Background
A member of the RNA family "Alphaproteobacteria transfer-messenger RNA" from Rhodovarius crocodyli, 323 nucleotides long. Gene Ontology term of the family: RNA catabolic process. The match comes from Rfam's covariance-model search (238 bits). The family's RNA type in Rfam is non-coding RNA gene. The base pairs follow the family's consensus structure, which is taken from published work.
[Rfam]
RNA sequence: CCCCUCGAUUCCGGCGGGGCGGCACGCUAUAUGCCCCCUGUCACCUUCGGGGACUAUGGCGAUAAACGCCGUGUGGAAUAAGCGUUACGGACCCGGGGGCAGUGCCCGGCGUCUCCACCAAUUUCCCGCCCAGGAUCGUGGGGCGCGUGUGGGGACGAAACAGCUUCGACGUGCGCGGUAAAGACACGGUUUUUGCCCGGCAUUGUACCGCCGUUAUCGGGCUAAAUCACAAGUGCCAACGAUAACAGCCGUGAGGCUGUGGCGCUCGCUGCCUAAUAGGUAAGCGCGGUCCGGGGGGAACCGGGCAACAGAAUCCCCCCACU
Number, nucleotide and partner (000 for none) at each position: 001c000002c000003c000004c000005u000006c000007g000008a000009u000010u000011c000012c000013g000014g000015c000016g000017g000018g000019g000020c000021g000022g000023c000024a000025c000026g000027c000028u000029a000030u000031a000032u000033g000034c000035c000036c000037c000038c000039u000040g054041u053042c052043a000044c050045c000046u000047u000048c000049g000050g044051g000052g042053a041054c040055u000056a000057u000058g197059g196060c195061g194062a193063u000064a000065a000066a000067c000068g190069c189070c188071g187072u186073g185074u184075g000076g000077a000078a000079u000080a000081a000082g000083c175084g174085u173086u000087a172088c171089g170090g000091a000092c000093c109094c108095g107096g106097g105098g000099g000100c000101a000102g000103u000104g000105c097106c096107c095108g094109g093110c157111g156112u155113c154114u153115c152116c151117a000118c000119c000120a000121a000122u000123u000124u000125c000126c000127c000128g000129c000130c000131c000132a000133g000134g000135a000136u000137c000138g000139u000140g000141g000142g000143g000144c000145g000146c000147g000148u000149g000150u000151g116152g115153g114154g113155a112156c111157g110158a000159a000160a000161c000162a000163g000164c000165u000166u000167c000168g000169a000170c089171g088172u087173g085174c084175g083176c000177g000178g000179u000180a000181a000182a000183g000184a074185c073186a072187c071188g070189g069190u068191u000192u000193u062194u061195g060196c059197c058198c213199g212200g211201c210202a000203u224204u000205g222206u000207a000208c220209c219210g201211c200212c199213g198214u000215u000216a000217u000218c000219g209220g208221g000222c205223u000224a203225a000226a000227u000228c000229a000230c000231a000232a000233g000234u000235g000236c000237c000238a000239a000240c000241g000242a000243u000244a000245a000246c000247a000248g000249c000250c000251g000252u000253g000254a000255g000256g000257c000258u000259g000260u000261g000262g000263c000264g000265c000266u000267c000268g000269c000270u000271g000272c000273c000274u000275a000276a000277u000278a000279g000280g000281u000282a000283a000284g000285c000286g000287c303288g302289g301290u300291c000292c000293g320294g319295g318296g317297g316298g315299a000300a290301c289302c288303g287304g000305g000306c000307a000308a000309c000310a000311g000312a000313a000314u000315c298316c297317c296318c295319c294320c293321a000322c000323u000